[Rfam]
RNA sequence: GAAAUUGUUUUCGAUAUAGAACACUCGUGUCAAGAAAAUGAUUUGAGUCCAUU
Numbered sequence: 001g002a003a004a005u006u007g008u009u010u011u012c013g014a015u016a017u018a019g020a021a022c023a024c025u026c027g028u029g030u031c032a033a034g035a036a037a038a039u040g041a042u043u044u045g046a047g048u049c050c051a052u053u
Stems, first nucleotide, its partner, number of pairs: 011033001013031005
Source information:
This 53-nucleotide RNA from Tripterygium wilfordii belongs to the Rfam family "Plastid-atpF group II-D1 intron". Its family is annotated with Group II intron splicing in the Gene Ontology. From the family's description: Plastid atpF is a non-coding RNA (ncRNA) recognised in plastids. It has been reported in the intron group II-D1 region of ATP synthase (atpF) genes. The source organism's lineage runs through Eukaryota, Streptophytina, Embryophyta, eudicotyledons and Tripterygium. For this family Rfam cites "Retrograde signaling in plants: A critical review focusing on the GUN pathway and beyond" (Richter et al., Plant Commun, 2023).